[Rfam]
RNA sequence: GGGAAACGGGAAGGCGGCGGCGUCCGCCGUAACAAACGCA
Numbered sequence: 001g002g003g004a005a006a007c008g009g010g011a012a013g014g015c016g017g018c019g020g021c022g023u024c025c026g027c028c029g030u031a032a033c034a035a036a037c038g039c040a
Base pairs, nucleotide, nucleotide: 013028014027015026016025017024020039021038022037
RNA: Putative RNA-dependent RNA polymerase ribosomal frameshift site
Organism: Polerovirus CYDVRPV